[Rfam]
RNA: FMN riboswitch aptamer (RFN element)
Organism: Bifidobacterium pseudolongum
RNA sequence: GCCAAGUUUCAAGGAAGGUGCAAUUCCUUACUGGCGGUAGCGCCAUACGCCCCAAGGCGGAUCAAGGCGGAGCCCGCAACCCGCAUGCAGCGGUGGAUCUGGUCGGAGUCCAGAGCCAACGGUCAUAGUCCGGAUGGAAGAAACAGGAG
Number, nucleotide and partner (000 for none) at each position: 001g000002c000003c147004a000005a000006g144007u143008u142009u141010c140011a000012a000013g000014g000015a000016a028017g027018g026019u000020g000021c000022a000023a000024u000025u000026c018027c017028u016029u000030a129031c128032u118033g117034g077035c076036g075037g074038u000039a000040g000041c000042g000043c000044c000045a000046u000047a000048c000049g000050c000051c000052c000053c000054a000055a000056g000057g000058c000059g000060g000061a000062u000063c000064a000065a000066g000067g000068c000069g000070g000071a000072g116073c115074c037075c036076g035077c034078a000079a000080c000081c093082c092083g000084c000085a000086u000087g000088c000089a000090g000091c000092g082093g081094u000095g000096g000097a000098u114099c113100u112101g111102g110103u000104c000105g000106g000107a000108g000109u000110c102111c101112a100113g099114a098115g073116c072117c033118a032119a000120c132121g131122g130123u000124c000125a000126u000127a000128g031129u030130c122131c121132g120133g000134a000135u000136g000137g000138a000139a000140g010141a009142a008143a007144c006145a000146g000147g003148a000149g000